The family of this 68-nucleotide RNA sequence from Pipistrellus kuhlii is "mir-711 microRNA precursor family". NCBI's taxonomy places the organism under Eukaryota, Chordata, Gnathostomata, Euteleostomi, Pipistrellus. For this family Rfam cites "In silico detection and characteristics of novel microRNA genes in the Equus caballus genome using an integrated ab initio and comparative genomic approach" (Zhou et al., Genomics, 2009). It scores 73 bits against the family's covariance model. Its family is annotated with RISC complex and miRNA-mediated post-transcriptional gene silencing in the Gene Ontology.

Nucleotides: 068
Base pairs, nucleotide, nucleotide: 002067003066005064006063011058012057013056014055015054016053017052018051019050022048023047024046025045027043028042030041031040032039
Number, partner (000 for none) and nucleotide at each position: 001000c002067c003066u004000g005064a006063c007000c008000g009000u010000g011058g012057u013056c014055u015054c016053u017052c018051c019050u020000c021000a022048g023047g024046g025045u026000g027043c028042u029000c030041c031040g032039g033000g034000c035000a036000a037000a038000g039032c040031u041030g042028g043027g044000g045025a046024c047023c048022c049000a050019g051018g052017g053016a054015g055014a056013g057012a058011c059000g060000u061000a062000a063006g064005u065000a066003a067002g068000g